[Rfam]
The record is an 81-nucleotide RNA sequence from Microcaecilia unicolor, which matches "Small nucleolar RNA SNORD87" in Rfam. On this family, see Gogolevskaya et al., Gene 2002: "U87 RNA, a novel C/D box small nucleolar RNA from mammalian cells". Rfam links the family to the GO terms nucleolus and RNA processing. The base pairs follow the family's consensus structure. Rfam classes the family as a C/D-box small nucleolar RNA. The match comes from Rfam's covariance-model search (52 bits).
RNA sequence: GCUGGCACAGUGAUGAGUAUCUUUGCCGUUUACCCAACUGAUUAAUUCUGUGAUGAGACUUGUGAAGAUCUGAGAGCCAGC
Numbered sequence: 001g002c003u004g005g006c007a008c009a010g011u012g013a014u015g016a017g018u019a020u021c022u023u024u025g026c027c028g029u030u031u032a033c034c035c036a037a038c039u040g041a042u043u044a045a046u047u048c049u050g051u052g053a054u055g056a057g058a059c060u061u062g063u064g065a066a067g068a069u070c071u072g073a074g075a076g077c078c079a080g081c
Base pairs, nucleotide, nucleotide: 001081002080003079004078005077006076